[Rfam]
RNA sequence: CUUGGAUACGGAGACAUGUACCCUCGUACCGGGACCGGGUACCUGGUGGGUGGUUUGUGUGCGGUUGCUGGUGUACUGGUGCUUGCCUUGCCCGUGCCUGUCAUCGUCAACAAC
Numbered sequence: 001c002u003u004g005g006a007u008a009c010g011g012a013g014a015c016a017u018g019u020a021c022c023c024u025c026g027u028a029c030c031g032g033g034a035c036c037g038g039g040u041a042c043c044u045g046g047u048g049g050g051u052g053g054u055u056u057g058u059g060u061g062c063g064g065u066u067g068c069u070g071g072u073g074u075a076c077u078g079g080u081g082c083u084u085g086c087c088u089u090g091c092c093c094g095u096g097c098c099u100g101u102c103a104u105c106g107u108c109a110a111c112a113a114c
Stems, first nucleotide, its partner, number of pairs: 002113001004111001008107004013102004018097004037077002050062002
Dot-bracket structure: .(.(...((((.((((.((((...............((...........((.........)).............))................)))).)))).))))...).).

A member of the RNA family "Potassium channel RNA editing signal" from Capitella teleta, 114 nucleotides long.
The family's RNA type in Rfam is cis-regulatory element.
Rfam 15.1 lists 14,095 matches to the family in 1,000 species.